[Rfam]
RNA: Small nucleolar RNA SNORD103/SNORD85
RNA sequence: UCUGGCGAUGACGACACACUUGCCCUCACUGAGAGCAGCGUUCGCUGAUGAGAGCGGUUUGAUGCGCUCAGCGGAACCGAGCCAGA
Numbered sequence: 001u002c003u004g005g006c007g008a009u010g011a012c013g014a015c016a017c018a019c020u021u022g023c024c025c026u027c028a029c030u031g032a033g034a035g036c037a038g039c040g041u042u043c044g045c046u047g048a049u050g051a052g053a054g055c056g057g058u059u060u061g062a063u064g065c066g067c068u069c070a071g072c073g074g075a076a077c078c079g080a081g082c083c084a085g086a
Base pairs, nucleotide, nucleotide: 001086002085003084004083005082006081